This 94-nucleotide sequence belongs to the Rfam family "SAM riboswitch aptamer (S box leader)". Rfam's curators write: The SAM riboswitch is found upstream of a number of genes which code for proteins involved in methionine or cysteine biosynthesis in Gram-positive bacteria. Gene Ontology term of the family: regulation of gene expression.
Nucleotides: 094
Stems, first nucleotide, its partner, number of pairs: 001093008013041001015040003021031003025068001027066002042060004047056002064085001069082005
Number, partner (000 for none) and nucleotide at each position: 001093g002092g003091c004090u005089u006088c007087g008086c009000a010000a011000g012000a013041g014000a015040g016039g017038u018000g019000g020000a021031g022030g023029g024000a025068c026000u027066g028065g029023c030022c031021c032000g033000a034000c035000g036000a037000a038017a039016c040015c041013c042060g043059g044058c045057a046000a047056c048055c049000a050000g051000a052000a053000a054000u055048g056047g057045u058044g059043c060042c061000a062000a063000u064085u065028c066027c067000u068025g069082c070081a071080g072079c073078g074000g075000a076000a077000a078073c079072g080071u081070u082069g083000a084000a085064a086008g087007c088006g089005g090004a091003g092002c093001c094000g